[Rfam]
Nucleotides: 054
Base pairs, nucleotide, nucleotide: 013043014041015040016039020036021035022034023033024032025031
Number, partner (000 for none) and nucleotide at each position: 001000a002000g003000u004000c005000a006000a007000a008000u009000c010000a011000a012000c013043u014041g015040u016039a017000g018000g019000u020036c021035g022034c023033u024032c025031u026000a027000g028000a029000u030000a031025a032024g033023a034022g035021c036020g037000u038000c039016u040015g041014c042000c043013a044000a045000a046000u047000g048000c049000c050000u051000u052000u053000a054000a